Background:
A member of the RNA family "Archaeal RNase P" from Methanobacterium lacus, 286 nucleotides long. The match comes from Rfam's covariance-model search (237 bits). The organism belongs to Methanobacterium, within Archaea.
[Rfam]
RNA sequence: GCAAGUCGAAGAGCAGCUAACGGUUUUUUGUAAACUGAGGAAACUCCAUCCAUCCUACAGAACUGUGGUGCCAUAAGGCACGCGCUGAGAAGCGUGACAAUGGAGCAGAAACGACACGUCUUUUGAUGAAUGACAAUGAAGCAAUGCUGAAGACAUCAAAAGGAUCGGUGAAACGGCCAUUCCACGGGAUGCAAGAGUAAAUACUACUGAUGAGUCCUGUACGAGGUAGAGGUAAUUCGCAUAGAUGAAUGCUGCUAAAACAGAAGGUGGGUUACUCUCGACAUGC
Numbered sequence: 001g002c003a004a005g006u007c008g009a010a011g012a013g014c015a016g017c018u019a020a021c022g023g024u025u026u027u028u029u030g031u032a033a034a035c036u037g038a039g040g041a042a043a044c045u046c047c048a049u050c051c052a053u054c055c056u057a058c059a060g061a062a063c064u065g066u067g068g069u070g071c072c073a074u075a076a077g078g079c080a081c082g083c084g085c086u087g088a089g090a091a092g093c094g095u096g097a098c099a100a101u102g103g104a105g106c107a108g109a110a111a112c113g114a115c116a117c118g119u120c121u122u123u124u125g126a127u128g129a130a131u132g133a134c135a136a137u138g139a140a141g142c143a144a145u146g147c148u149g150a151a152g153a154c155a156u157c158a159a160a161a162g163g164a165u166c167g168g169u170g171a172a173a174c175g176g177c178c179a180u181u182c183c184a185c186g187g188g189a190u191g192c193a194a195g196a197g198u199a200a201a202u203a204c205u206a207c208u209g210a211u212g213a214g215u216c217c218u219g220u221a222c223g224a225g226g227u228a229g230a231g232g233u234a235a236u237u238c239g240c241a242u243a244g245a246u247g248a249a250u251g252c253u254g255c256u257a258a259a260a261c262a263g264a265a266g267g268u269g270g271g272u273u274a275c276u277c278u279c280g281a282c283a284u285g286c
Stems, first nucleotide, its partner, number of pairs: 001286003005282005010276002012256006021037005042273003046270005051191004056221005063187005068081005082095005096182002101179003117167002120162008138147001195238004204229005
Gene Ontology terms of the family: tRNA processing, ribonuclease P activity and multimeric ribonuclease P complex. Rfam describes the family as follows. Ribonuclease P (RNase P) is a ubiquitous endoribonuclease, found in archaea, bacteria and eukarya as well as chloroplasts and mitochondria. Its best characterised activity is the generation of mature 5'-ends of tRNAs by cleaving the 5'-leader elements of precursor-tRNAs. Cellular RNase Ps are ribonucleoproteins. RNA from bacterial RNase Ps retains its catalytic activity in the absence of the protein subunit, i.e. it is a ribozyme.